[Rfam]
small nucleolar RNA snoR137: a 130-nucleotide RNA from Solanum tuberosum. The source organism's lineage runs through Eukaryota, Streptophyta, lamiids, Solanoideae and Solanum. The family's consensus secondary structure was predicted with RNAalifold. Gene Ontology terms of the family: nucleolus and RNA processing. The match comes from Rfam's covariance-model search (93 bits). On this family, see Chen and Wu, Nucleic Acids Res 2009: "Mining small RNA sequencing data: a new approach to identify small nucleolar RNAs in Arabidopsis". By type it is an H/ACA-box small nucleolar RNA.

RNA sequence: GUUGCUUCUUAUGGUGAACUCUCUUUAAAAGUGAGCAAUGUUCAUGUUUCUGAAGCAUAAAUAAACUGUCAGUAUUAAACAGCAUGGUGCACUUUCAAUUGCAUCUUGCUACCUGUCUCCUGCUACAUUC
Numbered sequence: 001g002u003u004g005c006u007u008c009u010u011a012u013g014g015u016g017a018a019c020u021c022u023c024u025u026u027a028a029a030a031g032u033g034a035g036c037a038a039u040g041u042u043c044a045u046g047u048u049u050c051u052g053a054a055g056c057a058u059a060a061a062u063a064a065a066c067u068g069u070c071a072g073u074a075u076u077a078a079a080c081a082g083c084a085u086g087g088u089g090c091a092c093u094u095u096c097a098a099u100u101g102c103a104u105c106u107u108g109c110u111a112c113c114u115g116u117c118u119c120c121u122g123c124u125a126c127a128u129u130c
Stems, first nucleotide, its partner, number of pairs: 003057006015044005020038001023035002068124001070122003074118001081110003086105004